[Rfam]
RNA: Alphaproteobacteria transfer-messenger RNA
RNA sequence: CCUCUUUCCAAGCGCCGGCUCAGCGCCUAUAUACGGCGCGUCAGCUUGUCUGACUAUGGUGAUAAACGGCCGAUGAAAUAAGCCUUUCGGACCCGGGGGCGGUACCCGGCGCCUCCACCAUAAACCGCCGUUCGCGACGGUUUAUGAUGGGGGCGAAAUAGGAUCGACGAGGGUGUAAAGAUCGGACUUUUGCCCGGCAUUGUACCACCGUUAUCGGGCUAAACUUGUAGUUGCAAACGACAACUAUGCUGAGGCACGUCUCGCUGCUUAAUGCGGCGCGAUAGUCUCGAAUCAAGCCCUACGGGUUAGCACCUUUAGGCGGGGUUCGGAGGUACCUGGCAACAGAAACCUCCACU
Numbered sequence: 001c002c003u004c005u006u007u008c009c010a011a012g013c014g015c016c017g018g019c020u021c022a023g024c025g026c027c028u029a030u031a032u033a034c035g036g037c038g039c040g041u042c043a044g045c046u047u048g049u050c051u052g053a054c055u056a057u058g059g060u061g062a063u064a065a066a067c068g069g070c071c072g073a074u075g076a077a078a079u080a081a082g083c084c085u086u087u088c089g090g091a092c093c094c095g096g097g098g099g100c101g102g103u104a105c106c107c108g109g110c111g112c113c114u115c116c117a118c119c120a121u122a123a124a125c126c127g128c129c130g131u132u133c134g135c136g137a138c139g140g141u142u143u144a145u146g147a148u149g150g151g152g153g154c155g156a157a158a159u160a161g162g163a164u165c166g167a168c169g170a171g172g173g174u175g176u177a178a179a180g181a182u183c184g185g186a187c188u189u190u191u192g193c194c195c196g197g198c199a200u201u202g203u204a205c206c207a208c209c210g211u212u213a214u215c216g217g218g219c220u221a222a223a224c225u226u227g228u229a230g231u232u233g234c235a236a237a238c239g240a241c242a243a244c245u246a247u248g249c250u251g252a253g254g255c256a257c258g259u260c261u262c263g264c265u266g267c268u269u270a271a272u273g274c275g276g277c278g279c280g281a282u283a284g285u286c287u288c289g290a291a292u293c294a295a296g297c298c299c300u301a302c303g304g305g306u307u308a309g310c311a312c313c314u315u316u317a318g319g320c321g322g323g324g325u326u327c328g329g330a331g332g333u334a335c336c337u338g339g340c341a342a343c344a345g346a347a348a349c350c351u352c353c354a355c356u
Base pairs, nucleotide, nucleotide: 040054041053042052043051044050058194059193060192061191062190068187070185071184072183073182074181083173084172085171087170088169089168093109094108095107096106097105110155111154112153113152114151115150116149195210196209197208200221202219205217206216322337323336324335325334328353329352330351331350332349333348